[Rfam]
Description
Rfam assigns this 189-nucleotide RNA from Desulfosporosinus sp. I2 to the family "Lysine riboswitch aptamer". Rfam describes the family as follows. Riboswitches are metabolite binding domains within certain messenger RNAs that serve as precision sensors for their corresponding targets. NCBI's taxonomy places the organism under Bacteria, Bacillota, Clostridia, Desulfitobacteriaceae, Desulfosporosinus.
RNA sequence: GGGUGUGGUAGAGGCGCGGACGACAAGAUUACCAUGAAGAAGGUUACGAAGGCCGAUGAAUUCAUGGGAAAGGGAAGUUCGCCGAAGCCCAAAAAUACGUGCUUUUUGGUGCUGGGUCUGUAGUAAAGAGCUACAGGACUGUCAUACGGUGCAAUACUCUAGGCUAUCGUGUGGAGAACUACUCACAAC
Numbered sequence: 001g002g003g004u005g006u007g008g009u010a011g012a013g014g015c016g017c018g019g020a021c022g023a024c025a026a027g028a029u030u031a032c033c034a035u036g037a038a039g040a041a042g043g044u045u046a047c048g049a050a051g052g053c054c055g056a057u058g059a060a061u062u063c064a065u066g067g068g069a070a071a072g073g074g075a076a077g078u079u080c081g082c083c084g085a086a087g088c089c090c091a092a093a094a095a096u097a098c099g100u101g102c103u104u105u106u107u108g109g110u111g112c113u114g115g116g117u118c119u120g121u122a123g124u125a126a127a128g129a130g131c132u133a134c135a136g137g138a139c140u141g142u143c144a145u146a147c148g149g150u151g152c153a154a155u156a157c158u159c160u161a162g163g164c165u166a167u168c169g170u171g172u173g174g175a176g177a178a179c180u181a182c183u184c185a186c187a188a189c
Stems, first nucleotide, its partner, number of pairs: 007183005016082006024074001032067007086113003089109007114140002117137008142174010